[Rfam]
RNA sequence: AGCCACGCAGUGAGCACAGAGCGAACUAUUCUUUCGCCUUUUACUAAAGAAUACCGUUUGCUCGCUGCAUUGAGUGGCAUACGUUUAUUUUUGGAGGGUGUUCUCGUUAAUGAGAGCC
Numbered sequence: 001a002g003c004c005a006c007g008c009a010g011u012g013a014g015c016a017c018a019g020a021g022c023g024a025a026c027u028a029u030u031c032u033u034u035c036g037c038c039u040u041u042u043a044c045u046a047a048a049g050a051a052u053a054c055c056g057u058u059u060g061c062u063c064g065c066u067g068c069a070u071u072g073a074g075u076g077g078c079a080u081a082c083g084u085u086u087a088u089u090u091u092u093g094g095a096g097g098g099u100g101u102u103c104u105c106g107u108u109a110a111u112g113a114g115a116g117c118c
Base pairs, nucleotide, nucleotide: 003077004076005075006074008067009066010065011064012063013062014061015060016059018057027053028052029051030050031049032048033047034046100117101116102115103114104113105112
Dot-bracket structure: ..((((.(((((((((.(........((((((((...........))))))))...).)))))))))......))))......................((((((......)))))).

A member of the RNA family "U5 spliceosomal RNA" from Chenopodium quinoa, 118 nucleotides long. Gene Ontology terms of the family: U5 snRNP and spliceosomal tri-snRNP complex assembly. About the family: U5 RNA is a component of both types of known spliceosome. The family's RNA type in Rfam is spliceosomal small nuclear RNA. Pairs were carried over by alignment from the consensus structure, which is taken from published work. NCBI's taxonomy places the organism under Eukaryota, Tracheophyta, Magnoliopsida, eudicotyledons, Chenopodium.